Rfam assigns this 105-nucleotide RNA from Flagellimonas meridianipacifica to the family "SAM riboswitch aptamer (S box leader)". From the family's description: The SAM riboswitch is found upstream of a number of genes which code for proteins involved in methionine or cysteine biosynthesis in Gram-positive bacteria. A search with the family's covariance model found it, with a score of 79 bits.
[Rfam]
RNA sequence: AUGUUAUCAAGAAAGGUGGAGGGAAUAGACCCUUAGAAACCUUAGCAACCCUCGUCUUCGAGAAGGUGCUACGUUCUAUUUCGCUUAUGCGGAAAAAGAUGACCA
Numbered sequence: 001a002u003g004u005u006a007u008c009a010a011g012a013a014a015g016g017u018g019g020a021g022g023g024a025a026u027a028g029a030c031c032c033u034u035a036g037a038a039a040c041c042u043u044a045g046c047a048a049c050c051c052u053c054g055u056c057u058u059c060g061a062g063a064a065g066g067u068g069c070u071a072c073g074u075u076c077u078a079u080u081u082c083g084c085u086u087a088u089g090c091g092g093a094a095a096a097a098g099a100u101g102a103c104c105a
Stems, first nucleotide, its partner, number of pairs: 003103006013043005021032003026078004044070004049066002051062004074097001079094006